[Rfam]
RNA sequence: UCCCGAUAACGGCAAAACCGGCUAAAGCCGGCGACGCAAAGCUAUAGGGGCUAAAGUCUCAGUUCGUGAAGAACGGGGACUAUGUCAGCCAGCUACCGAA
Numbered sequence: 001u002c003c004c005g006a007u008a009a010c011g012g013c014a015a016a017a018c019c020g021g022c023u024a025a026a027g028c029c030g031g032c033g034a035c036g037c038a039a040a041g042c043u044a045u046a047g048g049g050g051c052u053a054a055a056g057u058c059u060c061a062g063u064u065c066g067u068g069a070a071g072a073a074c075g076g077g078g079a080c081u082a083u084g085u086c087a088g089c090c091a092g093c094u095a096c097c098g099a100a
Stems, first nucleotide, its partner, number of pairs: 012037002018031005040094004047090002049086003056080004
c-di-GMP-I riboswitch aptamer: a 100-nucleotide RNA sequence from Paenibacillus ginsengarvi. NCBI's taxonomy places the organism under Bacteria, Bacillati, Caryophanales, Paenibacillaceae, Paenibacillus. The match comes from Rfam's covariance-model search (69 bits).